[Rfam]
RNA sequence: UCCAUCGCGAGGUGGAAUCUGAAGGAAGCAUCGAGGCAAACCUCUGGCCUGACGAACAGGAAUCGCAUUAGGCGCAAGCGGGUGGGUGAGGUUGCUAAGCAAACCAAAGCCCGAUAGCUAUACGGAAGCCCACAGCGUAGAUGCGGCAGGUGGAUGGAGGGAAAGAAACGUGG
Dot-bracket structure: ((((((....))))))............(((.....(...(((((((((((...........(((((....(((...(.((((((((..((((........))))...))))...............)))).)..)))...))))))))))...))))))....)....))).
The record is a 173-nucleotide RNA sequence from Paraeggerthella hongkongensis, which matches "Group II catalytic intron D1-D4-3" in Rfam. The base pairs follow the family's consensus structure. The source organism's lineage runs through Bacteria, Actinomycetota, Coriobacteriia, Eggerthellaceae and Paraeggerthella.